[Rfam]
RNA sequence: AGAACACCCCGCGGGAGCCGAACCGGCUGAGAGGGAGGCGCCGUGCCUCCGACCGCAAACCUGAUCCGGGUCAUACCGGCGAAGGGAGGGAGGAACAGCUGUGC
Number, nucleotide and partner (000 for none) at each position: 001a000002g000003a000004a000005c000006a000007c000008c090009c089010c088011g056012c055013g054014g053015g000016a000017g027018c026019c025020g024021a000022a000023c000024c020025g019026g018027c017028u000029g000030a000031g000032a000033g000034g050035g049036a048037g047038g046039c045040g044041c000042c000043g000044u040045g039046c038047c037048u036049c035050c034051g000052a000053c014054c013055g012056c011057a000058a000059a000060c085061c084062u083063g000064a000065u000066c079067c078068g077069g076070g000071u000072c000073a000074u000075a000076c069077c068078g067079g066080c000081g000082a000083a062084g061085g060086g000087a000088g010089g009090g008091a000092g000093g000094a000095a000096c000097a000098g000099c000100u000101g000102u000103g000104c000
Record summary:
Rfam assigns this 104-nucleotide RNA sequence from Haloactinospora alba to the family "TPP riboswitch aptamer (THI element)". The source organism's lineage runs through Bacteria, Bacillati, Actinomycetota, Streptosporangiales and Haloactinospora. The family has 115 seed sequences and 16,130 matches in Rfam 15.1. It scores 60 bits against the family's covariance model.